The family of this 103-nucleotide sequence from Phtheirospermum japonicum is "Small nucleolar RNA Z279/snoR105/snoR108". This family includes the plant snoRNAs known as Z279, snoR105 and snoR108. Its family is annotated with RNA processing and nucleolus in the Gene Ontology. Taxonomically the source falls in Phtheirospermum (Eukaryota, Streptophyta, Magnoliopsida, Lamiales). By type it is a C/D-box small nucleolar RNA. The literature on the family includes a 2002 paper in Curr Biol by Marker et al., "Experimental RNomics: identification of 140 candidates for small non-messenger RNAs in the plant Arabidopsis thaliana".
RNA sequence: GGGAUAUGAUGAGUGGUCUAUACUCGCAACUAAAAUAUGCGAGAUGGGUGUCCGCCUAGCCUGUUACGACACUGGGACACUCAAAUUUCACCAAUCUGAUCCC
Numbered sequence: 001g002g003g004a005u006a007u008g009a010u011g012a013g014u015g016g017u018c019u020a021u022a023c024u025c026g027c028a029a030c031u032a033a034a035a036u037a038u039g040c041g042a043g044a045u046g047g048g049u050g051u052c053c054g055c056c057u058a059g060c061c062u063g064u065u066a067c068g069a070c071a072c073u074g075g076g077a078c079a080c081u082c083a084a085a086u087u088u089c090a091c092c093a094a095u096c097u098g099a100u101c102c103c
Stems, first nucleotide, its partner, number of pairs: 001103004014093004023043005045083008061075003